mir-1285 microRNA precursor family: a 73-nucleotide RNA sequence from Macaca mulatta. Taxonomically the source falls in Macaca (Eukaryota, Eumetazoa, Haplorrhini, Cercopithecinae). Rfam 15.1 lists 264 matches to the family in 27 species.
RNA sequence: AUGAGGUCCCACUAUCUUGCCCAGGCUUGGUCUUGAGUUUGAGACCAGCCUGGGCAACAUAGUGGGACCUUAU
Numbered sequence: 001a002u003g004a005g006g007u008c009c010c011a012c013u014a015u016c017u018u019g020c021c022c023a024g025g026c027u028u029g030g031u032c033u034u035g036a037g038u039u040u041g042a043g044a045c046c047a048g049c050c051u052g053g054g055c056a057a058c059a060u061a062g063u064g065g066g067a068c069c070u071u072a073u
Stems, first nucleotide, its partner, number of pairs: 007067008019055007033048003

Source information: It scores 60 bits against the family's covariance model. Rfam links the family to the GO terms miRNA-mediated post-transcriptional gene silencing and RISC complex.